[Rfam]
RNA sequence: AUAAUGAUACUUCAGCUCGGCUUAGGUGUGAUGCCAGAGGAGUUGCUCGGUUGUAAACGGAGAGGUUGAAAUACCUAUGA
Numbered sequence: 001a002u003a004a005u006g007a008u009a010c011u012u013c014a015g016c017u018c019g020g021c022u023u024a025g026g027u028g029u030g031a032u033g034c035c036a037g038a039g040g041a042g043u044u045g046c047u048c049g050g051u052u053g054u055a056a057a058c059g060g061a062g063a064g065g066u067u068g069a070a071a072u073a074c075c076u077a078u079g080a
Stems, first nucleotide, its partner, number of pairs: 012077001013045006046062003050058003063076003
About this RNA
Shown here is an 80-nucleotide sequence, a member of the family "pemK RNA". It is annotated as a cis-regulatory element.